[Rfam]
RNA: Potassium channel RNA editing signal
RNA sequence: GUGGGUUACGGGGACAUGGCUCCCAAGACCUACUUGGGUAUGUUUGUGGGUACUCUAUGUGCCUUGGGUGGAGUGUUGACCGUGGCCUUGCCCGUGCCGGUCAUUGUGUCCAAC
Numbered sequence: 001g002u003g004g005g006u007u008a009c010g011g012g013g014a015c016a017u018g019g020c021u022c023c024c025a026a027g028a029c030c031u032a033c034u035u036g037g038g039u040a041u042g043u044u045u046g047u048g049g050g051u052a053c054u055c056u057a058u059g060u061g062c063c064u065u066g067g068g069u070g071g072a073g074u075g076u077u078g079a080c081c082g083u084g085g086c087c088u089u090g091c092c093c094g095u096g097c098c099g100g101u102c103a104u105u106g107u108g109u110c111c112a113a114c
Stems, first nucleotide, its partner, number of pairs: 001114002004111002007108005013102003018097001021094001037077004049063003